[Rfam]
RNA sequence: AGUGCAGGACUUGUCUAAAUAGGCAUUCAACUCGUUGUUGUGUUACUUGCCAUCUGAACUUGUUUCCUGCUAGACCAAUUUGAGAAAAAUGGGCAGUUGACUUAGGCCAAUGUCUUGUGGUUUCCUCAACAAUCAUUUUUCUCAUAGUU
Numbered sequence: 001a002g003u004g005c006a007g008g009a010c011u012u013g014u015c016u017a018a019a020u021a022g023g024c025a026u027u028c029a030a031c032u033c034g035u036u037g038u039u040g041u042g043u044u045a046c047u048u049g050c051c052a053u054c055u056g057a058a059c060u061u062g063u064u065u066c067c068u069g070c071u072a073g074a075c076c077a078a079u080u081u082g083a084g085a086a087a088a089a090u091g092g093g094c095a096g097u098u099g100a101c102u103u104a105g106g107c108c109a110a111u112g113u114c115u116u117g118u119g120g121u122u123u124c125c126u127c128a129a130c131a132a133u134c135a136u137u138u139u140u141c142u143c144a145u146a147g148u149u
Stems, first nucleotide, its partner, number of pairs: 004070006017043001019041002082143011096130004
Dot-bracket structure: ...((((((.......(.((...................)).).....................))))))...........(((((((((((...((((...........................))))..)))))))))))......
RNA: small nucleolar RNA snoR135
Organism: Panicum hallii